[Rfam]
RNA sequence: AGUAUUACCCUAACAGGAGCAUUGACUUGUCUUUUUUAAAUUAAGUAAGUGCUAUUGUUGGGGUAGUUUUA
Numbered sequence: 001a002g003u004a005u006u007a008c009c010c011u012a013a014c015a016g017g018a019g020c021a022u023u024g025a026c027u028u029g030u031c032u033u034u035u036u037u038a039a040a041u042u043a044a045g046u047a048a049g050u051g052c053u054a055u056u057g058u059u060g061g062g063g064u065a066g067u068u069u070u071a
Stems, first nucleotide, its partner, number of pairs: 004067008013058004018053006025046005